[Rfam]
RNA sequence: AUAAAGGAGCAAUAACCACCUUCUUGUUCUAGCAAGAGUGCUAGUAUUGCUCCUUUAUUUUC
Numbered sequence: 001a002u003a004a005a006g007g008a009g010c011a012a013u014a015a016c017c018a019c020c021u022u023c024u025u026g027u028u029c030u031a032g033c034a035a036g037a038g039u040g041c042u043a044g045u046a047u048u049g050c051u052c053c054u055u056u057a058u059u060u061u062c
Base pairs, nucleotide, nucleotide: 001058002057003056004055005054006053007052008051009050010049011048012047013046014045015042017040018039019038022037023036024035025034026033
RNA: Plastid-psbA-2 3UTR RNA